[Rfam]
RNA sequence: CGCAUGCUCCGGGGUCGGUGAAAAUCCGAGCCGGCGGUGACAGCCCGCGAACCACGCGAGAGCACUCUCACGUGGCCGACCUGGUGGAAUUCCAGGGCCGACGGUGAAAGUCCGGAUGGGAGGACGCAUGUG
Numbered sequence: 001c002g003c004a005u006g007c008u009c010c011g012g013g014g015u016c017g018g019u020g021a022a023a024a025u026c027c028g029a030g031c032c033g034g035c036g037g038u039g040a041c042a043g044c045c046c047g048c049g050a051a052c053c054a055c056g057c058g059a060g061a062g063c064a065c066u067c068u069c070a071c072g073u074g075g076c077c078g079a080c081c082u083g084g085u086g087g088a089a090u091u092c093c094a095g096g097g098c099c100g101a102c103g104g105u106g107a108a109a110g111u112c113c114g115g116a117u118g119g120g121a122g123g124a125c126g127c128a129u130g131u132g
Stems, first nucleotide, its partner, number of pairs: 003130005008124003016028003030111002032100002034048004043098002052075004080096005102114003